[Rfam]
RNA: Glycine riboswitch aptamer
RNA sequence: AGCAGCACCGUGCGAGAGACCACCUCGAAAGGUGGCGCCGAAGGCGCAAACCCGCCCGGAAUCGCUCAGGGUCUGCAGUCGCGUUUGCGAA
Numbered sequence: 001a002g003c004a005g006c007a008c009c010g011u012g013c014g015a016g017a018g019a020c021c022a023c024c025u026c027g028a029a030a031g032g033u034g035g036c037g038c039c040g041a042a043g044g045c046g047c048a049a050a051c052c053c054g055c056c057c058g059g060a061a062u063c064g065c066u067c068a069g070g071g072u073c074u075g076c077a078g079u080c081g082c083g084u085u086u087g088c089g090a091a
Stems, first nucleotide, its partner, number of pairs: 007085001009083004020035004038070002040067002044065003051058001